[Rfam]
RNA sequence: AACCCCCCGGGGGUUUUUUUUUUUACCCCCGGGGGUUUUUAAAAAAACGGGGGGGGGGUUUAAAACCCCCCCCCCCCCGGUUUUUAAAAACCCCGGGGGGGGUUUUUAAACCCCCCCGGGUUUAAAAAAAACCCCCGGGGGGGUUUUAAAAAAACCCGGGGG
Numbered sequence: 001a002a003c004c005c006c007c008c009g010g011g012g013g014u015u016u017u018u019u020u021u022u023u024u025a026c027c028c029c030c031g032g033g034g035g036u037u038u039u040u041a042a043a044a045a046a047a048c049g050g051g052g053g054g055g056g057g058g059u060u061u062a063a064a065a066c067c068c069c070c071c072c073c074c075c076c077c078c079g080g081u082u083u084u085u086a087a088a089a090a091c092c093c094c095g096g097g098g099g100g101g102g103u104u105u106u107u108a109a110a111c112c113c114c115c116c117c118g119g120g121u122u123u124a125a126a127a128a129a130a131a132c133c134c135c136c137g138g139g140g141g142g143g144u145u146u147u148a149a150a151a152a153a154a155c156c157c158g159g160g161g162g
Stems, first nucleotide, its partner, number of pairs: 001037004006033008048079006054072005092120005097114003132162007
About this RNA:
A member of the RNA family "Collinsella-1 RNA" from Serinus canaria, 162 nucleotides long. The base pairs follow the family's consensus structure, which is taken from published work. The match comes from Rfam's covariance-model search (40 bits).